[Rfam]
RNA: Fluoride riboswitch aptamer (crcB RNA motif)
RNA sequence: UCAAAAAAAGGCUAUGAGGUUAGCCUAAAAAGCCCCGCCAAAGGGGAUGAUAACCUCUACUCGAUA
Numbered sequence: 001u002c003a004a005a006a007a008a009a010g011g012c013u014a015u016g017a018g019g020u021u022a023g024c025c026u027a028a029a030a031a032g033c034c035c036c037g038c039c040a041a042a043g044g045g046g047a048u049g050a051u052a053a054c055c056u057c058u059a060c061u062c063g064a065u066a
Stems, first nucleotide, its partner, number of pairs: 010025004016057006033046003